Shown here is a 72-nucleotide RNA from Sciurus vulgaris, a member of the family "mir-451 microRNA precursor family". For this family Rfam cites "Role of MicroRNA miR-27a and miR-451 in the regulation of MDR1/P-glycoprotein expression in human cancer cells" (Zhu et al., Biochem Pharmacol, 2008). A search with the family's covariance model found it, with a score of 80 bits.
[Rfam]
RNA sequence: UUGGGAACGGUGAGGAAACCGUUACCCAUUACUGAGUUUAGUAAUGGUAAUGGUUCUCUUGCUGCUCCCAGA
Numbered sequence: 001u002u003g004g005g006a007a008c009g010g011u012g013a014g015g016a017a018a019c020c021g022u023u024a025c026c027c028a029u030u031a032c033u034g035a036g037u038u039u040a041g042u043a044a045u046g047g048u049a050a051u052g053g054u055u056c057u058c059u060u061g062c063u064g065c066u067c068c069c070a071g072a
Base pairs, nucleotide, nucleotide: 008064009063011061012060013059017055018054019053020052022050023049024048025047027046028045029044030043031042032041033040034039
Annotation
Taxonomically the source falls in Sciurus (Eukaryota, Metazoa, Eumetazoa, Theria).